[Rfam]
RNA sequence: CUCUGGGUUCGCAAAGAGCUCAGGGCGGAAAGAG
Dot-bracket structure: (((((..(((.....)))..))))).........
This 34-nucleotide RNA from Paenibacillus selenitireducens belongs to the Rfam family "L31-Firmicutes ribosomal protein leader". Its Rfam clan is "Ribosomal Protein L31 Leader clan". The organism belongs to Paenibacillus, within Bacteria. By type it is a cis-regulatory leader. A reference for the family is Eckert and Weinberg (2020), "Discovery of 20 novel ribosomal leader candidates in bacteria and archaea", BMC Microbiol.